[Rfam]
RNA sequence: UUGCUGUGAUGACUCUCUUAGGACACCUUUGGAGCCAACACCAAUGAAAAAAAAGUUGUUUCUGAGCAAC
Numbered sequence: 001u002u003g004c005u006g007u008g009a010u011g012a013c014u015c016u017c018u019u020a021g022g023a024c025a026c027c028u029u030u031g032g033a034g035c036c037a038a039c040a041c042c043a044a045u046g047a048a049a050a051a052a053a054a055g056u057u058g059u060u061u062c063u064g065a066g067c068a069a070c
Base pairs, nucleotide, nucleotide: 001069002068003067004066